RNA sequence: UGGACAGAUUACUAUAUUCGACUGUUUUCACGACGUGAAACAGGGAAUUAUACUGUUUUUAAACGGAAACUUUAUCAAUUAACGUAAUAGACUCCU
Numbered sequence: 001u002g003g004a005c006a007g008a009u010u011a012c013u014a015u016a017u018u019c020g021a022c023u024g025u026u027u028u029c030a031c032g033a034c035g036u037g038a039a040a041c042a043g044g045g046a047a048u049u050a051u052a053c054u055g056u057u058u059u060u061a062a063a064c065g066g067a068a069a070c071u072u073u074a075u076c077a078a079u080u081a082a083c084g085u086a087a088u089a090g091a092c093u094c095c096u
Base pairs, nucleotide, nucleotide: 002095003094004093009090010089011088013086014085015084017082018081020080021079023077024076027074030071034065035064036063037059038058039057040056041055042054043053

A member of the RNA family "MIR6152 microRNA precursor family" from Nicotiana sylvestris, 96 nucleotides long.